[Rfam]
RNA sequence: UCUAAAAGUUGUUGGGUCUGGUUGGGUAGCCGGAUCCAACACUAUUGGGUUUUGCUGAGCAGUCAAACCCAAAGCUAUUGAGCAGACCCAUAAUAUCCAAA
Numbered sequence: 001u002c003u004a005a006a007a008g009u010u011g012u013u014g015g016g017u018c019u020g021g022u023u024g025g026g027u028a029g030c031c032g033g034a035u036c037c038a039a040c041a042c043u044a045u046u047g048g049g050u051u052u053u054g055c056u057g058a059g060c061a062g063u064c065a066a067a068c069c070c071a072a073a074g075c076u077a078u079u080g081a082g083c084a085g086a087c088c089c090a091u092a093a094u095a096u097c098c099a100a101a
Base pairs, nucleotide, nucleotide: 008096009095013090014089015088016087017086018085019084021083022082023081025079026078027077028076029075030074032052033051034050035049036048037047038046039045056071057070059068